The family of this 60-nucleotide RNA sequence is "mir-360 microRNA precursor family". On this family, see Ohler et al., RNA 2004: "Patterns of flanking sequence conservation and a characteristic upstream motif for microRNA gene identification". The family has 4 seed sequences and 8 matches in Rfam 15.1.

RNA sequence: UUGUGACCGUUGUUACGGUCAAUUUCUUACUCAAAACUGACCGUAAUCCCGUUCACAACA
Numbered sequence: 001u002u003g004u005g006a007c008c009g010u011u012g013u014u015a016c017g018g019u020c021a022a023u024u025u026c027u028u029a030c031u032c033a034a035a036a037c038u039g040a041c042c043g044u045a046a047u048c049c050c051g052u053u054c055a056c057a058a059c060a
Stems, first nucleotide, its partner, number of pairs: 001058006008051002012047010